[Rfam]
Record summary
Mason-Pfizer monkey virus packaging signal: a 264-nucleotide RNA from Macaca fascicularis. By type it is a cis-regulatory element. This family represents a group of sequences that are related to the Mason-Pfizer monkey virus (MPMV) packaging signal. The packaging signal is located in the 5' UTR and is required for specific RNA encapsidation. Pairs were carried over by alignment from the consensus structure, which was predicted with PFOLD.
RNA sequence: UGGCACCCAAACGUGGGGCCUGGAAACGAGGGACUCCAGCCGGUCGACCGUUAUCAAAGACAAAAGAAGUUAAACUCCUCCGAUCACCACGGGAACCUGCCACGUCAGAAUCGAAGGUAAGUGACGCGUCCGAAAUGGGACAAGAAUUAAGUCAACAUCAAAUCUACGUAGGACAAUUAAAAGAGGCUUUAAAGAUACGAGGAGUAAAGGUUAAAAGUAAUGAUUUGUUUAAAUUUUUUGAUUUUGUAAAAGACACUUGCCCUU
Numbered sequence: 001u002g003g004c005a006c007c008c009a010a011a012c013g014u015g016g017g018g019c020c021u022g023g024a025a026a027c028g029a030g031g032g033a034c035u036c037c038a039g040c041c042g043g044u045c046g047a048c049c050g051u052u053a054u055c056a057a058a059g060a061c062a063a064a065a066g067a068a069g070u071u072a073a074a075c076u077c078c079u080c081c082g083a084u085c086a087c088c089a090c091g092g093g094a095a096c097c098u099g100c101c102a103c104g105u106c107a108g109a110a111u112c113g114a115a116g117g118u119a120a121g122u123g124a125c126g127c128g129u130c131c132g133a134a135a136u137g138g139g140a141c142a143a144g145a146a147u148u149a150a151g152u153c154a155a156c157a158u159c160a161a162a163u164c165u166a167c168g169u170a171g172g173a174c175a176a177u178u179a180a181a182a183g184a185g186g187c188u189u190u191a192a193a194g195a196u197a198c199g200a201g202g203a204g205u206a207a208a209g210g211u212u213a214a215a216a217g218u219a220a221u222g223a224u225u226u227g228u229u230u231a232a233a234u235u236u237u238u239u240g241a242u243u244u245u246g247u248a249a250a251a252g253a254c255a256c257u258u259g260c261c262c263u264u
Base pairs, nucleotide, nucleotide: 006032007031008030013027014026077117078116079114080113084110085108088104091101092100126141129139130138131137132136148191149190150189151187152186153185198240199239200238201237202236203235204234205233208226209225210224211223212222213221249264250263252261254259